[Rfam]
Shown here is a 75-nucleotide sequence, a member of the family "U1A polyadenylation inhibition element (PIE)". Rfam's curators put it in the seed alignment. On this family, see Clerte and Hall, Biochemistry 2004: "Global and Local Dynamics of the U1A Polyadenylation Inhibition Element (PIE) RNA and PIE RNA-U1A Complexes". Pairs were carried over by alignment from the consensus structure, which is taken from published work. It is annotated as a cis-regulatory element. From the family's description: This family represents the U1A polyadenylation inhibition element (PIE).
RNA sequence: CUUUUAAGCAUUGCACCCAGAGUCUGCAAGUCAGGCAUUGUACCUGGAGCUUUUUUCUUUUCUUUGCAAUAAACU
Numbered sequence: 001c002u003u004u005u006a007a008g009c010a011u012u013g014c015a016c017c018c019a020g021a022g023u024c025u026g027c028a029a030g031u032c033a034g035g036c037a038u039u040g041u042a043c044c045u046g047g048a049g050c051u052u053u054u055u056u057c058u059u060u061u062c063u064u065u066g067c068a069a070u071a072a073a074c075u
Base pairs, nucleotide, nucleotide: 006052007051008050009049017047018046019045020044022036023035024034025033026032